The family of this 137-nucleotide RNA sequence from Paenibacillus sp. OAS669 is "TPP riboswitch aptamer (THI element)". Pairs were carried over by alignment from the consensus structure, which is taken from published work.
[Rfam]
RNA sequence: AAUAACCACUAGGGGAGCCUUUUAUCGCGAGGCUGAGAUAAGAAAGCUUUUUCUUGACCCUUGGAACCUGAUUAUGGCAUGUCUUGUGCGGCAUGCUUCUGGAUGAUACCAGCGUAGGGAAGUGGACGAACGUAAGA
Numbered sequence: 001a002a003u004a005a006c007c008a009c010u011a012g013g014g015g016a017g018c019c020u021u022u023u024a025u026c027g028c029g030a031g032g033c034u035g036a037g038a039u040a041a042g043a044a045a046g047c048u049u050u051u052u053c054u055u056g057a058c059c060c061u062u063g064g065a066a067c068c069u070g071a072u073u074a075u076g077g078c079a080u081g082u083c084u085u086g087u088g089c090g091g092c093a094u095g096c097u098u099c100u101g102g103a104u105g106a107u108a109c110c111a112g113c114g115u116a117g118g119g120a121a122g123u124g125g126a127c128g129a130a131c132g133u134a135a136g137a
Stems, first nucleotide, its partner, number of pairs: 006125005011061004016055001017033005041054004067118004075111003
Dot-bracket structure: .....(((((((((.((((((.......))))).......((((......)))))..)))).....((((....(((...............................)))...))))..)))))............